[Rfam]
Nucleotides: 074
Base pairs, nucleotide, nucleotide: 001073002072003071004070005069006068007067010026011025012024013023028044029043030042031041032040050066051065052064053063054062
Number, partner (000 for none) and nucleotide at each position: 001073g002072u003071g004070a005069g006068c007067g008000u009000a010026g011025c012024u013023c014000a015000a016000c017000u018000g019000g020000u021000c022000a023013g024012a025011g026010c027000a028044c029043c030042a031041g032040a033000c034000u035000g036000u037000g038000g039000a040032u041031c042030u043029g044028g045000g046000g047000g048000c049000u050066g051065g052064g053063g054062g055000u056000u057000c058000g059000a060000g061000u062054c063053c064052c065051c066050u067007c068006g069005c070004u071003c072002a073001c074000c
Shown here is a 74-nucleotide RNA sequence from Coprothermobacter proteolyticus, a member of the family "tRNA". The family's RNA type in Rfam is transfer RNA. A search with the family's covariance model found it, with a score of 68 bits. Rfam describes the family as follows. Transfer RNA (tRNA) molecules are approximately 80 nucleotides in length. NCBI's taxonomy places the organism under Bacteria, Coprothermobacterota, Coprothermobacterales, Coprothermobacteraceae, Coprothermobacter proteolyticus.